[Rfam]
This 184-nucleotide RNA from Sodalis glossinidius belongs to the Rfam family "6S / SsrS RNA".
RNA sequence: AUUUCUCUGAGGUGUUCGCCAGCGGGUCAGUCCCUUGAGCCGAUAUUUCAUACCACAAGAAUGUGGCUAUUCCUGACCGGUGCGCAUGCUCGGCUUGUCCGAGAAGCCUUAAGGUCUCGACGCUACGUUCACCUUGAACCAAGGGUUCAAGGGUUACAGCCUGCGGCGGCAUCUCGGAGAUCCU
Dot-bracket structure: ...((((((((((((.(((............((..((((((.................(((.(((((..(.(..((((.....((...(((((.....)))))..)).....))))..)).))))).))).............)))))).)).............)))))))))))))))....

The family has 150 seed sequences and 5,006 matches in Rfam 15.1. It is annotated as a non-coding RNA gene. The source organism's lineage runs through Bacteria, Pseudomonadota, Gammaproteobacteria, Sodalis and Sodalis glossinidius.